[Rfam]
RNA sequence: GGUGCUAUGUGAUAUGUUUGAUAUUCGGUUGUUUUCCUCAUAUUAUAUCAACUAAAUAUCAGACAUAUUCCUAUAGAGCC
Number, nucleotide and partner (000 for none) at each position: 001g000002g000003u000004g000005c076006u075007a074008u073009g072010u000011g069012a068013u067014a066015u065016g064017u063018u062019u061020g060021a059022u058023a057024u056025u055026c000027g053028g052029u051030u050031g049032u000033u000034u000035u000036c000037c000038u000039c000040a000041u000042a000043u000044u000045a000046u000047a000048u000049c031050a030051a029052c028053u027054a000055a025056a024057u023058a022059u021060c020061a019062g018063a017064c016065a015066u014067a013068u012069u011070c000071c000072u009073a008074u007075a006076g005077a000078g000079c000080c000